[Rfam]
RNA sequence: UACUCAUCAAGAGUGGUGGAGGGACUGGCCCAAUGAAACCGCGGCAACCAUUUAGCAUAUUUAUGUUAAAAACGGUGCCAAUUCCGGCGGUAAAACCGCGAGAUGGGAG
Numbered sequence: 001u002a003c004u005c006a007u008c009a010a011g012a013g014u015g016g017u018g019g020a021g022g023g024a025c026u027g028g029c030c031c032a033a034u035g036a037a038a039c040c041g042c043g044g045c046a047a048c049c050a051u052u053u054a055g056c057a058u059a060u061u062u063a064u065g066u067u068a069a070a071a072a073c074g075g076u077g078c079c080a081a082u083u084c085c086g087g088c089g090g091u092a093a094a095a096c097c098g099c100g101a102g103a104u105g106g107g108a109g
Stems, first nucleotide, its partner, number of pairs: 001109001003107006013042005021031003025087004043079004048075002051070006083101001088098004

This 109-nucleotide RNA from Sporomusa silvacetica belongs to the Rfam family "SAM riboswitch aptamer (S box leader)". The SAM riboswitch is found upstream of a number of genes which code for proteins involved in methionine or cysteine biosynthesis in Gram-positive bacteria. Taxonomically the source falls in Sporomusa silvacetica (Bacteria, Bacillati, Selenomonadales, Sporomusaceae).